[Rfam]
RNA: Alphaproteobacterial ar14
Organism: Neomesorhizobium albiziae
RNA sequence: GGAAUUCCGCCGGGACCUACCUCCUCCCAGGUCCCGACGGAUACGGUCAGCUUUCACCUCCUCCCGAUCGCUGACCACACAAAACGGCACCCGCCGAACCUCCUCCCUCGGCGGGUGCUGUUA
Numbered sequence: 001g002g003a004a005u006u007c008c009g010c011c012g013g014g015a016c017c018u019a020c021c022u023c024c025u026c027c028c029a030g031g032u033c034c035c036g037a038c039g040g041a042u043a044c045g046g047u048c049a050g051c052u053u054u055c056a057c058c059u060c061c062u063c064c065c066g067a068u069c070g071c072u073g074a075c076c077a078c079a080c081a082a083a084a085c086g087g088c089a090c091c092c093g094c095c096g097a098a099c100c101u102c103c104u105c106c107c108u109c110g111g112c113g114g115g116u117g118c119u120g121u122u123a
Base pairs, nucleotide, nucleotide: 007040008039009038011036012035013034014033015032016031017030045076046075047074048073049072050071051070054067087118088117089116090115091114092113093112094111095110096109097108